[Rfam]
RNA: c-di-GMP-I riboswitch aptamer
Organism: Longibaculum muris
RNA sequence: AUAUGUAAAUGGCUAAACUAUUGAAAAAUAGUGACGCAAAGCUAUAGGGUCUAAGUCGUAAGAUAAGACAGCCAGUUGCCAAU
Numbered sequence: 001a002u003a004u005g006u007a008a009a010u011g012g013c014u015a016a017a018c019u020a021u022u023g024a025a026a027a028a029u030a031g032u033g034a035c036g037c038a039a040a041g042c043u044a045u046a047g048g049g050u051c052u053a054a055g056u057c058g059u060a061a062g063a064u065a066a067g068a069c070a071g072c073c074a075g076u077u078g079c080c081a082a083u
Base pairs, nucleotide, nucleotide: 012037013036017032018031019030020029021028022027040077041076042075043074047073048072049069050068051067056063057062